Rfam assigns this 568-nucleotide part of an RNA from Methanobrevibacter smithii to the family "Archaeal large subunit ribosomal RNA". Pairs were carried over by alignment from the consensus structure, which is taken from published work. NCBI's taxonomy places the organism under Archaea, Methanobacteriati, Methanobacteriota, Methanobacteriales, Methanobrevibacter smithii. Its family is annotated with ribosome and structural constituent of ribosome in the Gene Ontology. For this family Rfam cites "Crystal structure of the ribosome at 5.5 A resolution" (Yusupov et al., Science, 2001).

RNA sequence: CUACUUAUGCUAUCUGGGGGAUGGCUUGGCUUGAGUUGCCUAUGAAGGUCGUGGUAAGCUGCGAUAAGCUUGGGCGAGGAGCAUACAUCUUUGGAACCCAAGAUUGCCUAAUGGGACUUCCUAGCACAUUUUUUUUGUGUUGAUCCGUGUAGGAUUGGGAACCCGCCGAAUUGAAACAUCUUAGUAGGCGGAGGAAAAGAAAGCAAUAUGCGAUGUCGUUAGUAACGGCGAGCGAAAUCGACUUAGAACAAACUGAAUCCCUUUUAGUAAUAUUAGGGAGAUGUGGUGUAUAGACAUACUUUUAGGCCUCGGGGGAUAAAUUGAAUUUUUAUUUGGAAUUUUAGAACCGUAGAGGGUGAUAGUCCCGUAGAUAUAUUCUCUUUUUGAGGUUUUGUGUAUGAUUUUUUCUUGAGUAGGAUCCGUUGGAUAUCGGGUUUGAAUGUGGGAGGCAUCAACUUCCAAUUCUAAAUACGUCUCAAGACCGAUAGAGUAUUAGUACCGUGAGGGAAUGCUGAAAAGUACCCCUAUAGGGGGGUGAAAAGUACCUGAAACCAGAUAGUGACAGCCA
Number, nucleotide and partner (000 for none) at each position: 001c000002u000003a000004c000005u000006u000007a000008u561009g560010c559011u558012a557013u556014c555015u554016g553017g552018g000019g000020g000021a000022u000023g546024g512025c511026u000027u000028g483029g482030c480031u479032u478033g477034a476035g475036u000037u473038g472039c000040c000041u000042a000043u000044g000045a000046a109047g108048g107049u106050c063051g062052u061053g000054g000055u000056a000057a000058g000059c000060u000061g052062c051063g050064a000065u000066a000067a000068g000069c102070u101071u100072g099073g098074g097075c000076g000077a000078g090079g089080a088081g000082c000083a000084u000085a000086c000087a000088u080089c079090u078091u000092u000093g000094g000095a000096a000097c074098c073099c072100a071101a070102g069103a000104u000105u000106g049107c048108c047109u046110a000111a000112u000113g122114g121115g120116a000117c000118u000119u000120c115121c114122u113123a000124g000125c000126a000127c000128a000129u000130u000131u000132u000133u000134u000135u000136u000137g000138u000139g000140u000141u000142g000143a155144u154145c153146c152147g000148u000149g000150u000151a000152g146153g145154a144155u143156u000157g000158g000159g000160a000161a000162c193163c191164c190165g189166c188167c187168g000169a000170a000171u000172u000173g180174a179175a000176a000177c000178a000179u174180c173181u000182u000183a000184g000185u000186a000187g167188g166189c165190g164191g163192a000193g162194g000195a000196a000197a000198a000199g000200a000201a000202a000203g211204c210205a000206a000207u000208a000209u000210g204211c203212g000213a000214u000215g242216u241217c240218g239219u000220u000221a000222g000223u000224a000225a000226c232227g000228g000229c000230g000231a000232g226233c000234g000235a000236a000237a000238u000239c218240g217241a216242c215243u000244u000245a466246g465247a464248a463249c000250a000251a000252a000253c286254u285255g284256a000257a000258u000259c000260c000261c000262u000263u000264u000265u272266a271267g000268u000269a000270a000271u266272a265273u000274u000275a000276g000277g000278g000279a000280g000281a000282u000283g000284u255285g254286g253287u000288g000289u000290a000291u000292a000293g000294a000295c000296a399297u398298a397299c396300u000301u000302u000303u000304a000305g000306g390307c389308c388309u387310c000311g000312g000313g000314g000315g000316a000317u000318a000319a000320a372321u371322u370323g000324a000325a000326u345327u000328u344329u343330u000331a341332u000333u000334u000335g000336g000337a000338a000339u000340u000341u331342u000343a329344g328345a326346a000347c000348c352349g000350u000351a000352g348353a000354g366355g365356g364357u000358g000359a000360u000361a000362g000363u000364c356365c355366c354367g000368u000369a000370g322371a321372u320373a000374u000375a000376u000377u000378c000379u000380c000381u000382u000383u000384u000385u000386g000387a309388g308389g307390u306391u000392u000393u000394g000395u000396g299397u298398a297399u296400g000401a000402u000403u000404u000405u000406u000407u000408c000409u000410u000411g000412a000413g000414u000415a000416g437417g436418a435419u434420c433421c432422g431423u000424u000425g000426g000427a000428u000429a000430u000431c422432g421433g420434g419435u418436u417437u416438g000439a000440a000441u000442g000443u000444g460445g459446g458447a457448g456449g000450c000451a000452u000453c000454a000455a000456c448457u447458u446459c445460c444461a000462a000463u248464u247465c246466u245467a000468a000469a000470u000471a000472c038473g037474u000475c035476u034477c033478a032479a031480g030481a000482c029483c028484g000485a000486u000487a000488g000489a000490g000491u000492a000493u000494u000495a000496g000497u000498a000499c506500c505501g000502u000503g000504a000505g500506g499507g000508a000509a000510u000511g025512c024513u000514g000515a000516a000517a000518a000519g000520u000521a000522c000523c000524c000525c000526u000527a000528u000529a000530g000531g000532g000533g000534g000535g000536u000537g000538a000539a000540a000541a000542g000543u000544a000545c000546c023547u000548g000549a000550a000551a000552c017553c016554a015555g014556a013557u012558a011559g010560u009561g008562a000563c000564a000565g000566c000567c000568a000